[Rfam]
RNA sequence: CAGCGGUUUGGGAGCUGUAACCCACGGGCGGUAGCGUG
Numbered sequence: 001c002a003g004c005g006g007u008u009u010g011g012g013a014g015c016u017g018u019a020a021c022c023c024a025c026g027g028g029c030g031g032u033a034g035c036g037u038g
Base pairs, nucleotide, nucleotide: 009024010023011022012021
RNA: JUMPstart RNA